[Rfam]
RNA: mir-8517 microRNA precursor family
Organism: Plutella xylostella
RNA sequence: UUACUGGACGCUUUAGCUAUUGAACUGUUCUGUCACUCUCGGACAGAGACCAAUUUGUUCUUUGAUAGAGAAGGACAAAACAGUUCAAUAGCUAAAGCCUCUACUAAC
Numbered sequence: 001u002u003a004c005u006g007g008a009c010g011c012u013u014u015a016g017c018u019a020u021u022g023a024a025c026u027g028u029u030c031u032g033u034c035a036c037u038c039u040c041g042g043a044c045a046g047a048g049a050c051c052a053a054u055u056u057g058u059u060c061u062u063u064g065a066u067a068g069a070g071a072a073g074g075a076c077a078a079a080a081c082a083g084u085u086c087a088a089u090a091g092c093u094a095a096a097g098c099c100u101c102u103a104c105u106a107a108c
Stems, first nucleotide, its partner, number of pairs: 001107003005103002011097018029069007049059001051057002